[Rfam]
RNA sequence: UAACUUGUUCGUAGUAUGGCGAACAGGAUAAUCAAAAAAAACAUACAAUGAGA
Numbered sequence: 001u002a003a004c005u006u007g008u009u010c011g012u013a014g015u016a017u018g019g020c021g022a023a024c025a026g027g028a029u030a031a032u033c034a035a036a037a038a039a040a041a042c043a044u045a046c047a048a049u050g051a052g053a
Stems, first nucleotide, its partner, number of pairs: 006025006014046004
RNA: 6A RNA